The family of this 94-nucleotide RNA sequence is "malK-III RNA".
[Rfam]
RNA sequence: CGAGCCGGCUCCUCGUACGGGGUCCGUCCACGACGCCAAACGGCGGCUGGAUGCAAGGACCCGCGAUGCCCCGGUGGAGUGAGGUGAGCGCAUG
Dot-bracket structure: .............(((...(((((((((.....(((......)))....)))....))))))))).............................
Numbered sequence: 001c002g003a004g005c006c007g008g009c010u011c012c013u014c015g016u017a018c019g020g021g022g023u024c025c026g027u028c029c030a031c032g033a034c035g036c037c038a039a040a041c042g043g044c045g046g047c048u049g050g051a052u053g054c055a056a057g058g059a060c061c062c063g064c065g066a067u068g069c070c071c072c073g074g075u076g077g078a079g080u081g082a083g084g085u086g087a088g089c090g091c092a093u094g
Stems, first nucleotide, its partner, number of pairs: 014065003020062006026052003034045003
Notes:
The sequence is in the family's curated seed alignment.